The family of this 246-nucleotide RNA from Hafnia alvei is "SraG RNA".
The literature on the family includes a 2001 paper in Curr Biol by Argaman et al., "Novel small RNA-encoding genes in the intergenic regions of Escherichia coli".
This RNA was discovered in E. coli during a large scale screen. Evidence was found for specific cleavage of this RNA.

RNA sequence: CUUCGUUGCAUUCUCGCGACUAAUGGAAAUCACUGGUCAUCCAGAGACUUGCAUUAGCCGCGCGAACAUCUGCAAAAAGGAUCGUCACUCGGCAUGCGUUAUCAGCAACAGUCUAACCGACUCUAGUUUUAACGCUUACUUCUUUAACAACAACGAUUUUAACAACCGAAUUUGAGUUAACUACAAUACAUUAACCUGAUUUGCGAUUGCUUCCUAGAAGAAAGGGGCCAAUCUAGGCCCCUUUAC
Dot-bracket structure: (((....(((....((((.((((((..........................))))))...))))......)))...)))................................................................................................................................................((((((......)))))).....
Numbered sequence: 001c002u003u004c005g006u007u008g009c010a011u012u013c014u015c016g017c018g019a020c021u022a023a024u025g026g027a028a029a030u031c032a033c034u035g036g037u038c039a040u041c042c043a044g045a046g047a048c049u050u051g052c053a054u055u056a057g058c059c060g061c062g063c064g065a066a067c068a069u070c071u072g073c074a075a076a077a078a079g080g081a082u083c084g085u086c087a088c089u090c091g092g093c094a095u096g097c098g099u100u101a102u103c104a105g106c107a108a109c110a111g112u113c114u115a116a117c118c119g120a121c122u123c124u125a126g127u128u129u130u131a132a133c134g135c136u137u138a139c140u141u142c143u144u145u146a147a148c149a150a151c152a153a154c155g156a157u158u159u160u161a162a163c164a165a166c167c168g169a170a171u172u173u174g175a176g177u178u179a180a181c182u183a184c185a186a187u188a189c190a191u192u193a194a195c196c197u198g199a200u201u202u203g204c205g206a207u208u209g210c211u212u213c214c215u216a217g218a219a220g221a222a223a224g225g226g227g228c229c230a231a232u233c234u235a236g237g238c239c240c241c242u243u244u245a246c
Stems, first nucleotide, its partner, number of pairs: 001079003008073003015064004020057006224241006